RNA sequence: AACUUUGCACAGUGGCAGUAUCGUAGCCAAUGAGGUUUAUCCAAGGCGCAAUUAUUGCUAAUUAAAACCCUUGAUAUAGAGAAAUUUGUUGCAUUUCUAUACAUCAGUAAUAAAUUAGCAGAAAGAGAAAUU
Numbered sequence: 001a002a003c004u005u006u007g008c009a010c011a012g013u014g015g016c017a018g019u020a021u022c023g024u025a026g027c028c029a030a031u032g033a034g035g036u037u038u039a040u041c042c043a044a045g046g047c048g049c050a051a052u053u054a055u056u057g058c059u060a061a062u063u064a065a066a067a068c069c070c071u072u073g074a075u076a077u078a079g080a081g082a083a084a085u086u087u088g089u090u091g092c093a094u095u096u097c098u099a100u101a102c103a104u105c106a107g108u109a110a111u112a113a114a115u116u117a118g119c120a121g122a123a124a125g126a127g128a129a130a131u132u
Base pairs, nucleotide, nucleotide: 020052021051023049024048026047027046028045034042035041084111085110086109087106088105090103091102093100094099125132126131
Dot-bracket structure: ...................((.((.(((.....((.....))..))))).))...............................(((((.((.((....)).)).))..))).............((....))
This 132-nucleotide sequence from Mustela putorius belongs to the Rfam family "U4 spliceosomal RNA". By type it is a spliceosomal small nuclear RNA. U4 small nuclear RNA (U4 snRNA) is a component of the major U2-dependent spliceosome. The source organism's lineage runs through Eukaryota, Bilateria, Chordata, Eutheria and Mustela putorius. On this family, see Zwieb, Nucleic Acids Res 1997: "The uRNA database".